Shown here is a 90-nucleotide RNA sequence from Sideroxydans lithotrophicus, a member of the family "c-di-GMP-I riboswitch aptamer". NCBI's taxonomy places the organism under Bacteria, Pseudomonadati, Betaproteobacteria, Gallionellaceae, Sideroxydans lithotrophicus. Pairs were carried over by alignment from the consensus structure, which is taken from published work.
[Rfam]
RNA sequence: GUAAACUAAUAGCAAACCUAUUGAAAGGUAGGGACGCAAAGUUUCCGGUCUAAGGGGUCUGCAAAGCCCUAUGACAGCGGGAUUGCCGGU
Number, nucleotide and partner (000 for none) at each position: 001g000002u000003a000004a000005a000006c000007u000008a000009a000010u000011a000012g037013c036014a000015a000016a000017c032018c031019u030020a029021u028022u027023g000024a000025a000026a000027g022028g021029u020030a019031g018032g017033g000034a000035c000036g013037c012038a000039a000040a084041g083042u082043u081044u000045c080046c079047g078048g075049u074050c073051u000052a000053a000054g000055g069056g068057g067058u066059c000060u000061g000062c000063a000064a000065a000066g058067c057068c056069c055070u000071a000072u000073g050074a049075c048076a000077g000078c047079g046080g045081g043082a042083u041084u040085g000086c000087c000088g000089g000090u000
It scores 76 bits against the family's covariance model.